[Rfam]
RNA sequence: GUGCAGUGAUGAUACCAAUGUUGGUUUCGCUUGUUGCUGAAUUCCACUGAAGACACAUUUCUCUUGGCUGUCUGAGCAU
Numbered sequence: 001g002u003g004c005a006g007u008g009a010u011g012a013u014a015c016c017a018a019u020g021u022u023g024g025u026u027u028c029g030c031u032u033g034u035u036g037c038u039g040a041a042u043u044c045c046a047c048u049g050a051a052g053a054c055a056c057a058u059u060u061c062u063c064u065u066g067g068c069u070g071u072c073u074g075a076g077c078a079u
Stems, first nucleotide, its partner, number of pairs: 001079004
About this RNA
The family of this 79-nucleotide sequence from Bucco capensis is "Small nucleolar RNA SNORD53/SNORD92". A search with the family's covariance model found it, with a score of 83 bits. The family has 37 seed sequences and 2,250 matches in Rfam 15.1. Its family is annotated with nucleolus and RNA processing in the Gene Ontology. For this family Rfam cites "Site-specific ribose methylation of preribosomal RNA: a novel function for small nucleolar RNAs" (Kiss-Laszlo et al., Cell, 1996). The pairing is the family consensus, mapped onto this sequence.